RNA sequence: GAAGGUUCUCAGGUGAUGCACCCCAGAAUCGGGCUCCCUCCUUUCUGGUUCCUGGUGCAUCACGGAGAACUGCA
Numbered sequence: 001g002a003a004g005g006u007u008c009u010c011a012g013g014u015g016a017u018g019c020a021c022c023c024c025a026g027a028a029u030c031g032g033g034c035u036c037c038c039u040c041c042u043u044u045c046u047g048g049u050u051c052c053u054g055g056u057g058c059a060u061c062a063c064g065g066a067g068a069a070c071u072g073c074a
Stems, first nucleotide, its partner, number of pairs: 005070006013063005019057004026051008
mir-9223 microRNA precursor family: a 74-nucleotide RNA sequence from Myotis davidii. Its family is annotated with RISC complex and miRNA-mediated post-transcriptional gene silencing in the Gene Ontology. The base pairs follow the family's consensus structure, which was predicted with RNAalifold.